[Rfam]
RNA sequence: GUCAGGAACCUCAGCCUAAAGGCAUGAGGCUUGCCGGAGAAAUCCAGUAAGCCAUUCUGACCAGCCACAGUCUUAACUGACUACAUUUCGAGAGUCACGACACCCUUAGAUGCGUGCUAGUCUUCUGCUCUGUCGCUAACAAUUAAACAGUUUUACGGUCACUGAAACAGUGUUGUUAGCUUAACAAGCUCUUGAAAUAUUGGCGAAGCAAACAUUAC
Numbered sequence: 001g002u003c004a005g006g007a008a009c010c011u012c013a014g015c016c017u018a019a020a021g022g023c024a025u026g027a028g029g030c031u032u033g034c035c036g037g038a039g040a041a042a043u044c045c046a047g048u049a050a051g052c053c054a055u056u057c058u059g060a061c062c063a064g065c066c067a068c069a070g071u072c073u074u075a076a077c078u079g080a081c082u083a084c085a086u087u088u089c090g091a092g093a094g095u096c097a098c099g100a101c102a103c104c105c106u107u108a109g110a111u112g113c114g115u116g117c118u119a120g121u122c123u124u125c126u127g128c129u130c131u132g133u134c135g136c137u138a139a140c141a142a143u144u145a146a147a148c149a150g151u152u153u154u155a156c157g158g159u160c161a162c163u164g165a166a167a168c169a170g171u172g173u174u175g176u177u178a179g180c181u182u183a184a185c186a187a188g189c190u191c192u193u194g195a196a197a198u199a200u201u202g203g204c205g206a207a208g209c210a211a212a213c214a215u216u217a218c
Base pairs, nucleotide, nucleotide: 001061002060003059004058005057006056007055010029011028012026013025015022016021030051031050032049033048064204065203066202067201069082070081071080072079085198086197087196088195089194090193091192092191093190094189095188100133101132104127108123109122110121111120115211116209117208118207135180136179137178138177139176140175141174142173143172147171148170150168151167152166153165154164155163
HNH endonuclease-associated RNA and ORF (HEARO) RNA: a 218-nucleotide RNA sequence from filamentous cyanobacterium Phorm 6.
The match comes from Rfam's covariance-model search (150 bits).
Pairs were carried over by alignment from the consensus structure, which is taken from published work.
The organism belongs to Cyanobacteriota, within Bacteria.